[Rfam]
RNA: TPP riboswitch aptamer (THI element)
Organism: Faunimonas pinastri
RNA sequence: UCGAAUGGCACGGGGUGCUCGCCGGUUCGCGGCGGGCUGAGAUCAGACCCGCGACUUGAUCUGGGUAAUGCCAGCGAAAGGACUGCCGUGAUCGACGAUA
Numbered sequence: 001u002c003g004a005a006u007g008g009c010a011c012g013g014g015g016u017g018c019u020c021g022c023c024g025g026u027u028c029g030c031g032g033c034g035g036g037c038u039g040a041g042a043u044c045a046g047a048c049c050c051g052c053g054a055c056u057u058g059a060u061c062u063g064g065g066u067a068a069u070g071c072c073a074g075c076g077a078a079a080g081g082a083c084u085g086c087c088g089u090g091a092u093c094g095a096c097g098a099u100a
Stems, first nucleotide, its partner, number of pairs: 006088005011051004016045001017037008055080003061074004